RNA: Protozoan signal recognition particle RNA
RNA sequence: ACCGCUGUAACCCUUCGGGGGGGUGCUGGGGGGAACUCGGCGAACUGUCAUGUUGAGGCGUGGUUCUCUGCGAGGCUGUCUGCUGUGGGCGGGAGUCGGCUCUGGUGGCUUCCCGGAGGGGGAGCUUCCGGGCCGUUGAAUGCGGCGGACCGCUUGAGGCUGGCAACAGAGCAGAGAAAAGCUUCAGCUUCUGUUACGCAGCAGAUCGCGGCCCGCGGGUCGCGCAUUCCACCAU
Numbered sequence: 001a002c003c004g005c006u007g008u009a010a011c012c013c014u015u016c017g018g019g020g021g022g023g024u025g026c027u028g029g030g031g032g033g034a035a036c037u038c039g040g041c042g043a044a045c046u047g048u049c050a051u052g053u054u055g056a057g058g059c060g061u062g063g064u065u066c067u068c069u070g071c072g073a074g075g076c077u078g079u080c081u082g083c084u085g086u087g088g089g090c091g092g093g094a095g096u097c098g099g100c101u102c103u104g105g106u107g108g109c110u111u112c113c114c115g116g117a118g119g120g121g122g123a124g125c126u127u128c129c130g131g132g133c134c135g136u137u138g139a140a141u142g143c144g145g146c147g148g149a150c151c152g153c154u155u156g157a158g159g160c161u162g163g164c165a166a167c168a169g170a171g172c173a174g175a176g177a178a179a180a181g182c183u184u185c186a187g188c189u190u191c192u193g194u195u196a197c198g199c200a201g202c203a204g205a206u207c208g209c210g211g212c213c214c215g216c217g218g219g220u221c222g223c224g225c226a227u228u229c230c231a232c233c234a235u
Stems, first nucleotide, its partner, number of pairs: 011020003060235005074213006080204007088195009097135003101132005107126008136140001141186002144183003153176003160169003